RNA: c-di-GMP-I riboswitch aptamer
Organism: Shewanella sp. SNU WT4
Nucleotides: 084
Stems, first nucleotide, its partner, number of pairs: 012037002018031005040078004045074003048069003055063002
Number, partner (000 for none) and nucleotide at each position: 001000u002000u003000a004000a005000a006000u007000u008000a009000a010000u011000g012037g013036c014000a015000a016000a017000c018031c019030a020029g021028u022027a023000g024000a025000a026000a027022u028021a029020c030019u031018g032000a033000g034000a035000c036013g037012c038000a039000a040078a041077g042076c043075u044000u045074c046073c047072g048069g049068u050067c051000u052000a053000a054000g055063g056062g057000g058000a059000u060000u061000a062056c063055c064000u065000a066000a067050g068049a069048u070000a071000g072047c073046g074045g075043a076042g077041u078040u079000g080000c081000a082000g083000a084000a